Glycine riboswitch aptamer: an 80-nucleotide RNA from Roseobacter sp. SK209-2-6. From the family's description: This family represents the bacterial glycine riboswitch. A search with the family's covariance model found it, with a score of 43 bits.
RNA sequence: CAUUUGAACUCUGGAGAGGGCCCGGCCGGACCGGGACGCCGAAGGAUAACGAUCUCAGGCAAAAGGACAGAGGGGGCAUC
Numbered sequence: 001c002a003u004u005u006g007a008a009c010u011c012u013g014g015a016g017a018g019g020g021c022c023c024g025g026c027c028g029g030a031c032c033g034g035g036a037c038g039c040c041g042a043a044g045g046a047u048a049a050c051g052a053u054c055u056c057a058g059g060c061a062a063a064a065g066g067a068c069a070g071a072g073g074g075g076g077c078a079u080c
Base pairs, nucleotide, nucleotide: 009072010071011070012069013068021035022034023033038060039059040058041056042055045054046053047052